RNA: int-alpA RNA
RNA sequence: GCCGCGCCUGGCCCGACGGGGAGAAAACCGGGACACCCUUGCCCGCCGGCGAGGCGCGUCGUUGGAGCG
Number, nucleotide and partner (000 for none) at each position: 001g055002c054003c053004g000005c051006g050007c049008c048009u000010g000011g000012c021013c020014c019015g000016a000017c000018g000019g014020g013021g012022a000023g000024a000025a000026a000027a000028c000029c045030g044031g043032g042033a000034c000035a000036c069037c000038c067039u066040u065041g000042c032043c031044c030045g029046c000047c000048g008049g007050c006051g005052a000053g003054g002055c001056g000057c000058g000059u000060c000061g000062u000063u000064g000065g040066a039067g038068c000069g036